[Rfam]
RNA sequence: GUCAGGUACCCUAUCCCCUGAAGGGGAUGGGCUUGUAAACUGUUCGUGGCUUUACACGAGGCUGUUGCAAGCCUGGACCUGACCAGACUCAGUUUCAGCGUUUUGUCUGGAUAGAAUCAGCCAAGCUGAAACUACAAUAUCGGGAAGGUUUCAGAACGUACCUUGGGAUGCGUGCCAGUCCCAAGCUCUACAACUUUCAAGUUAACCAGCAAGACGGGGUUCGAUGCAGUGCUUGAAGGGCAUGCGGCCCGAUAUUAUUGUCGAGGCAAACAUUAC
Numbered sequence: 001g002u003c004a005g006g007u008a009c010c011c012u013a014u015c016c017c018c019u020g021a022a023g024g025g026g027a028u029g030g031g032c033u034u035g036u037a038a039a040c041u042g043u044u045c046g047u048g049g050c051u052u053u054a055c056a057c058g059a060g061g062c063u064g065u066u067g068c069a070a071g072c073c074u075g076g077a078c079c080u081g082a083c084c085a086g087a088c089u090c091a092g093u094u095u096c097a098g099c100g101u102u103u104u105g106u107c108u109g110g111a112u113a114g115a116a117u118c119a120g121c122c123a124a125g126c127u128g129a130a131a132c133u134a135c136a137a138u139a140u141c142g143g144g145a146a147g148g149u150u151u152c153a154g155a156a157c158g159u160a161c162c163u164u165g166g167g168a169u170g171c172g173u174g175c176c177a178g179u180c181c182c183a184a185g186c187u188c189u190a191c192a193a194c195u196u197u198c199a200a201g202u203u204a205a206c207c208a209g210c211a212a213g214a215c216g217g218g219g220u221u222c223g224a225u226g227c228a229g230u231g232c233u234u235g236a237a238g239g240g241c242a243u244g245c246g247g248c249c250c251g252a253u254a255u256u257a258u259u260g261u262c263g264a265g266g267c268a269a270a271c272a273u274u275a276c
Stems, first nucleotide, its partner, number of pairs: 001083007010031002013028002017024002032071007086262003091133009136256009158191002162185008173269001174267003194239009207229001209227003213222002
The record is a 276-nucleotide RNA sequence from Ktedonobacteria bacterium brp13, which matches "HNH endonuclease-associated RNA and ORF (HEARO) RNA" in Rfam. The match comes from Rfam's covariance-model search (114 bits). On this family, see Weinberg et al., Nature 2009: "Exceptional structured noncoding RNAs revealed by bacterial metagenome analysis". By type it is a non-coding RNA gene.